Small nucleolar RNA SNORA84: a 135-nucleotide RNA sequence from Formicarius rufipectus. The organism belongs to Formicarius, within Eukaryota. For this family Rfam cites "Experimental RNomics: identification of 140 candidates for small non-messenger RNAs in the plant Arabidopsis thaliana" (Marker et al., Curr Biol, 2002). Pairs were carried over by alignment from the consensus structure, which was predicted with WAR. Its family is annotated with RNA processing and nucleolus in the Gene Ontology.
RNA sequence: GCCCUGUGGUUACUGGGCACUGCUGUGUCCAUGCAGUGCCCCAGUGGGAGGAAUGGGCCGACAGUGACACUGUGGUUCACGCGUGGAGCCUGUGACCCCGUGAGCAGCUUCCACAGCCCGGCCACAGGGACACAC
Numbered sequence: 001g002c003c004c005u006g007u008g009g010u011u012a013c014u015g016g017g018c019a020c021u022g023c024u025g026u027g028u029c030c031a032u033g034c035a036g037u038g039c040c041c042c043a044g045u046g047g048g049a050g051g052a053a054u055g056g057g058c059c060g061a062c063a064g065u066g067a068c069a070c071u072g073u074g075g076u077u078c079a080c081g082c083g084u085g086g087a088g089c090c091u092g093u094g095a096c097c098c099c100g101u102g103a104g105c106a107g108c109u110u111c112c113a114c115a116g117c118c119c120g121g122c123c124a125c126a127g128g129g130a131c132a133c134a135c
Stems, first nucleotide, its partner, number of pairs: 001058004007050001010047008019037005070127001072125006081117002083114004088109001090107004